[Rfam]
RNA sequence: UGUCUCCUCCAACUCCCUCCAAGGAUUGGAUUUAACCCGCCCCCAGUUGGCGGGUUUUUUUUU
Number, nucleotide and partner (000 for none) at each position: 001u000002g000003u000004c000005u000006c000007c000008u030009c029010c028011a027012a026013c023014u022015c000016c000017c000018u000019c000020c000021a000022a014023g013024g000025a000026u012027u011028g010029g009030a008031u000032u000033u000034a056035a055036c054037c053038c052039g051040c050041c049042c000043c000044c000045a000046g000047u000048u000049g041050g040051c039052g038053g037054g036055u035056u034057u000058u000059u000060u000061u000062u000063u000
RNA: Betaproteobacteria toxic small RNA
Organism: Rugamonas brunnea